RNA: NiCo (Nickel/Cobalt) riboswitch aptamer
Organism: Proteiniborus sp. DW1
RNA sequence: AAAAUAGAUAUAUGAUCAGGCCAUGCAUAAAAGCAUGUGCCGGGCCUUAAUUGGCAGCAGGAAUAAAAACCUGUGGGACUAUA
Numbered sequence: 001a002a003a004a005u006a007g008a009u010a011u012a013u014g015a016u017c018a019g020g021c022c023a024u025g026c027a028u029a030a031a032a033g034c035a036u037g038u039g040c041c042g043g044g045c046c047u048u049a050a051u052u053g054g055c056a057g058c059a060g061g062a063a064u065a066a067a068a069a070c071c072u073g074u075g076g077g078a079c080u081a082u083a
Stems, first nucleotide, its partner, number of pairs: 010082003014079001017077001019041003023036004044055003057074005